[Rfam]
A member of the RNA family "mir-729 microRNA precursor family" from Acanthochromis polyacanthus, 81 nucleotides long.
RNA sequence: GGCCUCCAGAGCGGGGGCUGUAUCAUAACCAGGCUGUGGCUGAGAGGAGCAUGGGUAUGAUACGACCUCAGUUUGGAGGCG
Numbered sequence: 001g002g003c004c005u006c007c008a009g010a011g012c013g014g015g016g017g018c019u020g021u022a023u024c025a026u027a028a029c030c031a032g033g034c035u036g037u038g039g040c041u042g043a044g045a046g047g048a049g050c051a052u053g054g055g056u057a058u059g060a061u062a063c064g065a066c067c068u069c070a071g072u073u074u075g076g077a078g079g080c081g
Base pairs, nucleotide, nucleotide: 002080003079004078005077006076007075009074010073011072012071014069015068016067017066019064020063021062022061023060024059025058026057027056029054030053031052033050034049035047037045

Pairs were carried over by alignment from the consensus structure, which was predicted with RNAalifold.